Overview:
This 359-nucleotide part of an RNA from Halolamina pelagica belongs to the Rfam family "Archaeal small subunit ribosomal RNA". Rfam links the family to the GO terms structural constituent of ribosome and ribosome. The source organism's lineage runs through Archaea, Methanobacteriati, Methanobacteriota, Halobacteriales and Halolamina. The family's consensus secondary structure is taken from published work.
RNA sequence: GGCCUAAAGCGUCCGUAGCUGGCCGCGCAAGUCCGUCGGGAAAUCCACCCGCUUAACGGGUGGGCGUCCGGCGGAAACUGUGCGGCUUGGGACAGGAAGGCUCGAGGGGUACGUUCGGGGUAGGAGUGAAAUCCCGUAAUCCUGAACGGACCACCGAUGGCGAAAGCACCUCGAGAGGACUGAUCCGACAGUGAGGGACGAAAGCUGGGGUCUCGAACCGGAUUAGAUACCCGGGUAGUCCCAGCCGUAAACGAUGUUCGCUAGGUGUGACACUCACUACGAGUGAGUGUUGUGCCGCAGGGAAGCCGCUAAGCGAACCGCCUGGGAAGUACGUCCGCAAGGAUGAAACUUAAAGGAAU
Numbered sequence: 001g002g003c004c005u006a007a008a009g010c011g012u013c014c015g016u017a018g019c020u021g022g023c024c025g026c027g028c029a030a031g032u033c034c035g036u037c038g039g040g041a042a043a044u045c046c047a048c049c050c051g052c053u054u055a056a057c058g059g060g061u062g063g064g065c066g067u068c069c070g071g072c073g074g075a076a077a078c079u080g081u082g083c084g085g086c087u088u089g090g091g092a093c094a095g096g097a098a099g100g101c102u103c104g105a106g107g108g109g110u111a112c113g114u115u116c117g118g119g120g121u122a123g124g125a126g127u128g129a130a131a132u133c134c135c136g137u138a139a140u141c142c143u144g145a146a147c148g149g150a151c152c153a154c155c156g157a158u159g160g161c162g163a164a165a166g167c168a169c170c171u172c173g174a175g176a177g178g179a180c181u182g183a184u185c186c187g188a189c190a191g192u193g194a195g196g197g198a199c200g201a202a203a204g205c206u207g208g209g210g211u212c213u214c215g216a217a218c219c220g221g222a223u224u225a226g227a228u229a230c231c232c233g234g235g236u237a238g239u240c241c242c243a244g245c246c247g248u249a250a251a252c253g254a255u256g257u258u259c260g261c262u263a264g265g266u267g268u269g270a271c272a273c274u275c276a277c278u279a280c281g282a283g284u285g286a287g288u289g290u291u292g293u294g295c296c297g298c299a300g301g302g303a304a305g306c307c308g309c310u311a312a313g314c315g316a317a318c319c320g321c322c323u324g325g326g327a328a329g330u331a332c333g334u335c336c337g338c339a340a341g342g343a344u345g346a347a348a349c350u351u352a353a354a355g356g357a358a359u
Base pairs, nucleotide, nucleotide: 001322002321003320009319011199012198013197014196016193018192019191020190022086023085024084025083026082027081028080030079031078032075033074034073035072036071037070038069039068040067045063046062047061048060049059050058051057090186091185092184093182094181095180101175102174103173104172105171106170107169108152109151112148113147114146115145116144117143118142119141123134124133125132160167161166204245205244206243207242208241209240214238218234219233220232221231256318257317258316259315260314261313264296265295266294267293268292269291270290271289272288273287274286275285276284277283300307301306324351325350326349333344334343335342336341